[Rfam]
Rfam assigns this 111-nucleotide RNA from Paenibacillus sp. UNC496MF to the family "epsC RNA". The organism belongs to Paenibacillus, within Bacteria. Pairs were carried over by alignment from the consensus structure, which is taken from published work. The match comes from Rfam's covariance-model search (102 bits).

RNA sequence: AGGUAAUGUCUACUGUACCUUUAUCACCGUAGGCACUCGGUCAUGCUGUGGGCUACCCAGCCUUAGACGUUCAUCGUCGAGGGUGUGACGUGAGGCGGGGUUGAAUGCCCC
Numbered sequence: 001a002g003g004u005a006a007u008g009u010c011u012a013c014u015g016u017a018c019c020u021u022u023a024u025c026a027c028c029g030u031a032g033g034c035a036c037u038c039g040g041u042c043a044u045g046c047u048g049u050g051g052g053c054u055a056c057c058c059a060g061c062c063u064u065a066g067a068c069g070u071u072c073a074u075c076g077u078c079g080a081g082g083g084u085g086u087g088a089c090g091u092g093a094g095g096c097g098g099g100g101u102u103g104a105a106u107g108c109c110c111c
Stems, first nucleotide, its partner, number of pairs: 001020004007035007036094004040089008050063005066078004097111005